[Rfam]
Nucleotides: 082
Stems, first nucleotide, its partner, number of pairs: 002081002004078005014069009026059006033052003
Number, partner (000 for none) and nucleotide at each position: 001000a002081g003080g004078u005077c006076a007075c008074a009000a010000u011000c012000a013000a014069c015068a016067u017066u018065c019064a020063u021062u022061g023000c024000u025000g026059u027058c028057g029056g030055u031054g032000g033052g034051u035050u036000g037000a038000a039000c040000u041000g042000u043000g044000u045000a046000g047000a048000a049000a050035a051034g052033c053000u054031c055030a056029c057028u058027g059026a060000a061022c062021a063020a064019u065018g066017a067016a068015u069014g070000c071000a072000a073000c074008u075007g076006u077005g078004g079000c080003c081002c082000c
The record is an 82-nucleotide RNA from Rattus norvegicus, which matches "mir-181 microRNA precursor family" in Rfam. The sequence is in the family's curated seed alignment. Rfam links the family to the GO terms RISC complex and miRNA-mediated post-transcriptional gene silencing.